Annotation
Rfam assigns this 80-nucleotide RNA sequence from Marmota marmota to the family "Small nucleolar RNA SNORD115". Gene Ontology terms of the family: nucleolus and RNA processing. The organism belongs to Marmota marmota, within Eukaryota. It scores 43 bits against the family's covariance model. A reference for the family is Cavaille et al. (2000), "Identification of brain-specific and imprinted small nucleolar RNA genes exhibiting an unusual genomic organization", Proc Natl Acad Sci U S A. Rfam classes the family as a C/D-box small nucleolar RNA.

[Rfam]
RNA sequence: AAGUGGAUAUAUGUGUGGAGAAUAUCUUAAGGAGACAUGAUGAUGUAAAAAUCAUGCUCAAUGGGACUAUGCUAAGGCUC
Numbered sequence: 001a002a003g004u005g006g007a008u009a010u011a012u013g014u015g016u017g018g019a020g021a022a023u024a025u026c027u028u029a030a031g032g033a034g035a036c037a038u039g040a041u042g043a044u045g046u047a048a049a050a051a052u053c054a055u056g057c058u059c060a061a062u063g064g065g066a067c068u069a070u071g072c073u074a075a076g077g078c079u080c
Stems, first nucleotide, its partner, number of pairs: 002079003006073001008071002